[Rfam]
RNA: skipping-rope RNA
RNA sequence: ACAUUUUGAAGUAGAGAAUGUGCUGCUACACCCCGUAAAGGUUUCGUUUUAGAAAUCUUUUUAAACGGACAAAAGAAAUGCAGGACAGGGCACACCUGCCGAAGUGU
Numbered sequence: 001a002c003a004u005u006u007u008g009a010a011g012u013a014g015a016g017a018a019u020g021u022g023c024u025g026c027u028a029c030a031c032c033c034c035g036u037a038a039a040g041g042u043u044u045c046g047u048u049u050u051a052g053a054a055a056u057c058u059u060u061u062u063a064a065a066c067g068g069a070c071a072a073a074a075g076a077a078a079u080g081c082a083g084g085a086c087a088g089g090g091c092a093c094a095c096c097u098g099c100c101g102a103a104g105u106g107u
Stems, first nucleotide, its partner, number of pairs: 001107008011029004020093005031075001033068003080099005